This 71-nucleotide sequence from Ceutorhynchus assimilis belongs to the Rfam family "mir-87 microRNA precursor family". The match comes from Rfam's covariance-model search (52 bits).
[Rfam]
RNA sequence: UGUCGCUACGCUUGAACUUUGUUUUUCCUGUUUUUUGUACUAGGUGAGCAAAGAUUCAGGUGUGUCGACGA
Numbered sequence: 001u002g003u004c005g006c007u008a009c010g011c012u013u014g015a016a017c018u019u020u021g022u023u024u025u026u027c028c029u030g031u032u033u034u035u036u037g038u039a040c041u042a043g044g045u046g047a048g049c050a051a052a053g054a055u056u057c058a059g060g061u062g063u064g065u066c067g068a069c070g071a
Base pairs, nucleotide, nucleotide: 002069003068004067005066007064009062010061011060012059013058014057015056017053018052019051020050022048023047024046027044028043029042